RNA sequence: CCAACCGUGGCACCCAGUGGGUUGGCCCUCACUGGCUCUGUCUUAAUGGCUGUUAGGAGCUGAGUGUCCUUGAGACACAUCACCCAUGAUGUCUGUUCCUUGCCAUGUCGUUGGAGAUAAAACUGCCCCCAAUAUCUCACUUGUGAGUACUGGCUUGGUGUGGUGCUUUGUAUAUUCCUUGUGCUUCCCAGAGUCACUCUGUGGCCGUGACUGGGGGGAUAAACCAUACAAUGAACAAUG
Numbered sequence: 001c002c003a004a005c006c007g008u009g010g011c012a013c014c015c016a017g018u019g020g021g022u023u024g025g026c027c028c029u030c031a032c033u034g035g036c037u038c039u040g041u042c043u044u045a046a047u048g049g050c051u052g053u054u055a056g057g058a059g060c061u062g063a064g065u066g067u068c069c070u071u072g073a074g075a076c077a078c079a080u081c082a083c084c085c086a087u088g089a090u091g092u093c094u095g096u097u098c099c100u101u102g103c104c105a106u107g108u109c110g111u112u113g114g115a116g117a118u119a120a121a122a123c124u125g126c127c128c129c130c131a132a133u134a135u136c137u138c139a140c141u142u143g144u145g146a147g148u149a150c151u152g153g154c155u156u157g158g159u160g161u162g163g164u165g166c167u168u169u170g171u172a173u174a175u176u177c178c179u180u181g182u183g184c185u186u187c188c189c190a191g192a193g194u195c196a197c198u199c200u201g202u203g204g205c206c207g208u209g210a211c212u213g214g215g216g217g218g219a220u221a222a223a224c225c226a227u228a229c230a231a232u233g234a235a236c237a238a239u240g
Stems, first nucleotide, its partner, number of pairs: 001114005007108001009042004014035003019028003046106004056098003059093001063090001064087002168231006184218006193205004

The family of this 240-nucleotide sequence from Desmophyllum pertusum is "Small nucleolar RNA SNORA73 family".
A search with the family's covariance model found it, with a score of 98 bits.
Rfam 15.1 lists 2,326 matches to the family in 660 species.
Its Rfam clan is "snR30-U17 clan".
From the family's description: U17 (SNORA73A and SNORA73B) also known as E1 belongs to the H/ACA class of small nucleolar RNAs (snoRNAs). Vertebrate U17 is intron-encoded and ranges in length from 200-230 nucleotides, longer than most snoRNAs. It is one of the most abundant snoRNAs in human cells and is essential for the cleavage of pre-rRNA within the 5' external transcribed spacer (ETS). This cleavage leads to the formation of 18S rRNA. Regions of the U17 RNA are complementary to rRNA and act as guides for RNA/RNA interactions, although these regions do not seem to be well conserved between organisms.